[Rfam]
RNA: Pyrrolysine insertion sequence mttB
RNA sequence: AUGACUGAUGCCAAAACCGCAGAUGCGCAGUCAGGCUAUGAAAAGGGGUAUACCAUCGCCCUUGCCGCGCAGGGUGGCGCGGACAUGAUCAACCUGAGCGUCG
Numbered sequence: 001a002u003g004a005c006u007g008a009u010g011c012c013a014a015a016a017c018c019g020c021a022g023a024u025g026c027g028c029a030g031u032c033a034g035g036c037u038a039u040g041a042a043a044a045g046g047g048g049u050a051u052a053c054c055a056u057c058g059c060c061c062u063u064g065c066c067g068c069g070c071a072g073g074g075u076g077g078c079g080c081g082g083a084c085a086u087g088a089u090c091a092a093c094c095u096g097a098g099c100g101u102c103g
Stems, first nucleotide, its partner, number of pairs: 003012001025032001033062003077101001079099002